Source information
Shown here is a 137-nucleotide RNA from Vitis rotundifolia, a member of the family "small nucleolar RNA snoR137". Rfam classes the family as an H/ACA-box small nucleolar RNA. Rfam 15.1 lists 808 matches to the family in 221 species.
RNA sequence: GUUGCUUCUUUCAAACCUGAGUGACUAUUUUACUGGUUGGUCAUUCAUAUUGAGAAGCAUAGAGGAAAAGAAAUGCCAGUUUUAAACAGCAUGAUGUCCAUCCUAUAGCAUUGUGUUACCUGUCUACUGGUAAACGC
Numbered sequence: 001g002u003u004g005c006u007u008c009u010u011u012c013a014a015a016c017c018u019g020a021g022u023g024a025c026u027a028u029u030u031u032a033c034u035g036g037u038u039g040g041u042c043a044u045u046c047a048u049a050u051u052g053a054g055a056a057g058c059a060u061a062g063a064g065g066a067a068a069a070g071a072a073a074u075g076c077c078a079g080u081u082u083u084a085a086a087c088a089g090c091a092u093g094a095u096g097u098c099c100a101u102c103c104u105a106u107a108g109c110a111u112u113g114u115g116u117u118a119c120c121u122g123u124c125u126a127c128u129g130g131u132a133a134a135c136g137c
Base pairs, nucleotide, nucleotide: 003059004058005057006056007055008054018047019046020045021044022043023042024041025040026039027038075131076130077129078128079127080126088117089116090115092113093112094111095110096109